[Rfam]
TD-1 RNA: a 132-nucleotide RNA sequence from Treponema parvum. The family's RNA type in Rfam is cis-regulatory element. Clan: TD (Treponema denticola) motifs. The literature on the family includes a 2007 paper in Nucleic Acids Res by Weinberg et al., "Identification of 22 candidate structured RNAs in bacteria using the CMfinder comparative genomics pipeline". The organism belongs to Treponema, within Bacteria. Pairs were carried over by alignment from the consensus structure, which is taken from published work.
Nucleotides: 132
Stems, first nucleotide, its partner, number of pairs: 011037002013034008051081008086126010098113006
Number, partner (000 for none) and nucleotide at each position: 001000c002000u003000u004000c005000a006000a007000c008000g009000c010000c011037g012036a013034g014033u015032u016031u017030u018029a019028g020027g021000c022000c023000u024000c025000a026000g027020c028019c029018u030017a031016a032015a033014a034013c035000g036012u037011c038000g039000c040000a041000u042000u043000a044000u045000c046000g047000g048000u049000c050000u051081g052080c053079a054078c055077u056076u057075u058074c059000u060000c061000a062000a063000c064000u065000a066000a067000c068000g069000u070000u071000u072000g073000c074058g075057a076056a077055a078054g079053u080052g081051c082000g083000u084000a085000a086126a087125a088124a089123u090122u091121g092120u093119u094118u095117c096000u097000c098113g099112g100111c101110u102109u103108u104000u105000g106000a107000u108103a109102a110101a111100g112099u113098c114000u115000g116000c117095g118094a119093a120092a121091c122090a123089a124088u125087u126086u127000u128000u129000a130000g131000g132000a